The record is a 129-nucleotide sequence from Jaculus jaculus, which matches "Small nucleolar RNA SNORA33" in Rfam. The family has 28 seed sequences and 1,176 matches in Rfam 15.1.
RNA sequence: CAGCCAAUUAAUUGGUCUGCUUAUCAGAAUGUGUUUCUGCAGAAAUGUGGAGAGCUGGCGACGGUGAUGCCAUGUUAGGAGCCUUAAGGACAGCUGAGGUCAUUAAGGUCCCUGAAAAUGGCUACGACA
Numbered sequence: 001c002a003g004c005c006a007a008u009u010a011a012u013u014g015g016u017c018u019g020c021u022u023a024u025c026a027g028a029a030u031g032u033g034u035u036u037c038u039g040c041a042g043a044a045a046u047g048u049g050g051a052g053a054g055c056u057g058g059c060g061a062c063g064g065u066g067a068u069g070c071c072a073u074g075u076u077a078g079g080a081g082c083c084u085u086a087a088g089g090a091c092a093g094c095u096g097a098g099g100u101c102a103u104u105a106a107g108g109u110c111c112c113u114g115a116a117a118a119u120g121g122c123u124a125c126g127a128c129a
Stems, first nucleotide, its partner, number of pairs: 003059004016043005069122004081109007089101003
Dot-bracket structure: ..((((.........(((((..................)))))............)))).........((((........(((((((.(((.......))).))))))).........)))).......